[Rfam]
RNA: Ruegeria cis2 sRNA
Organism: Roseovarius nanhaiticus
RNA sequence: UUCGAGUUAUUGGGCGAAUAAUUCACAAAGACGAACCCGCGCGCCUGGUCGAUCGUGUGAAAGAGCGGGUUCCAGUCGAACAUCCGCAGCAUGUAGCCCGGCAGCAUGUUGGCCACGAACAUCUUGCCCGAGGCGAUCAUGUUGGCCCGCUG
Number, nucleotide and partner (000 for none) at each position: 001u000002u034003c033004g032005a000006g000007u029008u028009a000010u000011u025012g024013g023014g022015c000016g000017a000018a000019u000020a000021a000022u014023u013024c012025a011026c000027a000028a008029a007030g000031a000032c004033g003034a002035a000036c000037c055038c000039g053040c051041g050042c000043g000044c000045c000046u000047g000048g000049u000050c041051g040052a000053u039054c000055g037056u000057g000058u000059g000060a000061a000062a000063g000064a151065g150066c149067g148068g000069g081070u080071u079072c078073c000074a000075g000076u000077c000078g072079a071080a070081c069082a000083u000084c000085c000086g000087c144088a143089g142090c141091a140092u139093g138094u000095a000096g000097c133098c132099c130100g129101g128102c126103a125104g124105c000106a122107u121108g000109u118110u117111g116112g000113c000114c000115a000116c111117g110118a109119a000120c000121a107122u106123c000124u104125u103126g102127c000128c101129c100130g099131a000132g098133g097134c000135g000136a000137u000138c093139a092140u091141g090142u089143u088144g087145g000146c000147c000148c067149g066150c065151u064152g000